[Rfam]
RNA sequence: GCACGGCCUCCGCCGAGUCCGGCGUGCCCGCGUGGCGCCCGGAGCCGGGGACCCACCGAUCCUGGGGUGAAUCGGCCGACUCCCGCCCGGGACGACGCCGUAGGGCAACCCUUCCGAACCGCCGCCCGAACCCGACAGCUAACCCGGUAGGCGGCCCAUUGGAAGGAGUC
Numbered sequence: 001g002c003a004c005g006g007c008c009u010c011c012g013c014c015g016a017g018u019c020c021g022g023c024g025u026g027c028c029c030g031c032g033u034g035g036c037g038c039c040c041g042g043a044g045c046c047g048g049g050g051a052c053c054c055a056c057c058g059a060u061c062c063u064g065g066g067g068u069g070a071a072u073c074g075g076c077c078g079a080c081u082c083c084c085g086c087c088c089g090g091g092a093c094g095a096c097g098c099c100g101u102a103g104g105g106c107a108a109c110c111c112u113u114c115c116g117a118a119c120c121g122c123c124g125c126c127c128g129a130a131c132c133c134g135a136c137a138g139c140u141a142a143c144c145c146g147g148u149a150g151g152c153g154g155c156c157c158a159u160u161g162g163a164a165g166g167a168g169u170c
Stems, first nucleotide, its partner, number of pairs: 011153004018043005044148006054064002065133003073100004103127004
About this RNA: The family of this 170-nucleotide RNA sequence from Streptomyces roseochromogenus is "c-di-AMP riboswitch aptamer (ydaO/yuaA leader)". Taxonomically the source falls in Streptomyces roseochromogenus subsp. oscitans (Bacteria, Actinomycetes, Streptomycetaceae, Streptomyces).